[Rfam]
RNA: Bacterial small signal recognition particle RNA
RNA sequence: AACCCCUCACGCGGCGGCAUCUGGCCCAACUCCCCCAGGGCAGGAAUGCAGCAAGGGUAAGCAAGCUCUGCCGGGUGCGUGAGGGGCCUUU
Numbered sequence: 001a002a003c004c005c006c007u008c009a010c011g012c013g014g015c016g017g018c019a020u021c022u023g024g025c026c027c028a029a030c031u032c033c034c035c036c037a038g039g040g041c042a043g044g045a046a047u048g049c050a051g052c053a054a055g056g057g058u059a060a061g062c063a064a065g066c067u068c069u070g071c072c073g074g075g076u077g078c079g080u081g082a083g084g085g086g087c088c089u090u091u
Base pairs, nucleotide, nucleotide: 001090002089005086006083007082008081009080010079011078012075015073016072017071018070019069021065022064024062025061032057033056034055040049041048042047
Dot-bracket structure: ((..((((((((..(((((.((.((......(((.....(((....))).....)))...)).))...))))).)..))))))..)..)).